Shown here is a 100-nucleotide RNA sequence from Pedobacter nutrimenti, a member of the family "SAM riboswitch aptamer (S box leader)". The SAM riboswitch is found upstream of a number of genes which code for proteins involved in methionine or cysteine biosynthesis in Gram-positive bacteria. Pairs were carried over by alignment from the consensus structure, which is taken from published work.
RNA sequence: GACUUAUAAAGAAAGACUUAGGGAAAGGCCCGGUGAUGUCUUAGCAACCUGUACACAUCAAGGUGCUAAAUCCUAUCCUUUAAAACGGAAAAGAUAAGUG
Numbered sequence: 001g002a003c004u005u006a007u008a009a010a011g012a013a014a015g016a017c018u019u020a021g022g023g024a025a026a027g028g029c030c031c032g033g034u035g036a037u038g039u040c041u042u043a044g045c046a047a048c049c050u051g052u053a054c055a056c057a058u059c060a061a062g063g064u065g066c067u068a069a070a071u072c073c074u075a076u077c078c079u080u081u082a083a084a085a086c087g088g089a090a091a092a093g094a095u096a097a098g099u100g
Base pairs, nucleotide, nucleotide: 002099003098004097005096006095007094013042014041015040016039017038021031022030023029026074027073028072043067044066045065046064048063049062051058052057071092076089077088078087080085
Dot-bracket structure: .((((((.....(((((...(((..[[[)))......)))))((((.((.((....))...))))))...(]]].(((.(....).)))..).)))))).